RNA sequence: CGUGCUCAUGCGCCUAAUCCCGCAAGGGAGCCGGGGAACCACCUUUUUGGGGUGAAUCGGUCGCCUUUCCUUCGAGGGGCGACGGUAGGAGACCUUCCUGCUCCGAACCCGUCAGCUAACCCGGUAGGCGAGAAGGAAGGAAAGG
Numbered sequence: 001c002g003u004g005c006u007c008a009u010g011c012g013c014c015u016a017a018u019c020c021c022g023c024a025a026g027g028g029a030g031c032c033g034g035g036g037a038a039c040c041a042c043c044u045u046u047u048u049g050g051g052g053u054g055a056a057u058c059g060g061u062c063g064c065c066u067u068u069c070c071u072u073c074g075a076g077g078g079g080c081g082a083c084g085g086u087a088g089g090a091g092a093c094c095u096u097c098c099u100g101c102u103c104c105g106a107a108c109c110c111g112u113c114a115g116c117u118a119a120c121c122c123g124g125u126a127g128g129c130g131a132g133a134a135g136g137a138a139g140g141a142a143a144g145g
Base pairs, nucleotide, nucleotide: 011130012129013128014127018029019028020027030125031124032123033122034121035120040049041048050110051109052108058085060083061082062081063080064079065078066077067076088104089103090102091101
RNA: c-di-AMP riboswitch aptamer (ydaO/yuaA leader)
Organism: Streptomyces sp. NA04227